[Rfam]
A member of the RNA family "ZMP/ZTP riboswitch aptamer (pfl RNA motif)" from Microbacterium invictum, 83 nucleotides long. The base pairs follow the family's consensus structure, which is taken from published work. Taxonomically the source falls in Microbacterium (Bacteria, Bacillati, Actinomycetes, Microbacteriaceae).

RNA sequence: UCGGAUCGUCGCGACUGGCGUUGAGGUGGGCAACCACCGGGGAGCGACCGUAUGGCAUUCGACCGCACGCCUGGGCCGGGUCA
Numbered sequence: 001u002c003g004g005a006u007c008g009u010c011g012c013g014a015c016u017g018g019c020g021u022u023g024a025g026g027u028g029g030g031c032a033a034c035c036a037c038c039g040g041g042g043a044g045c046g047a048c049c050g051u052a053u054g055g056c057a058u059u060c061g062a063c064c065g066c067a068c069g070c071c072u073g074g075g076c077c078g079g080g081u082c083a
Base pairs, nucleotide, nucleotide: 003053005051006050008048009047010046011045012044015041016040017071018070019069020068021067026037027036028035029034060078061077063075064074
Dot-bracket structure: ..(.((.(((((..(([[[[[....((((....))))..))..))))).)).)......((.((..]]]]]..)).)).....